Description:
The family of this 85-nucleotide sequence is "c-di-GMP-II-GAG riboswitch aptamer". For this family Rfam cites "Bioinformatic analysis of riboswitch structures uncovers variant classes with altered ligand specificity" (Weinberg et al., Proc Natl Acad Sci U S A, 2017). Clan: c-di-GMP_II riboswitch clan. It is one of the family's seed sequences.

RNA sequence: GGAUGCGCGGGAGGCCGCGAUGGGCCGUCCAAACCCCUGCCGCCGGGACGGUCCUGAGCCACUGGCGAGACGGGCCCGCGGGCAC
Numbered sequence: 001g002g003a004u005g006c007g008c009g010g011g012a013g014g015c016c017g018c019g020a021u022g023g024g025c026c027g028u029c030c031a032a033a034c035c036c037c038u039g040c041c042g043c044c045g046g047g048a049c050g051g052u053c054c055u056g057a058g059c060c061a062c063u064g065g066c067g068a069g070a071c072g073g074g075c076c077c078g079c080g081g082g083c084a085c
Stems, first nucleotide, its partner, number of pairs: 001085001004082001006080006013060003022054008038072002041067004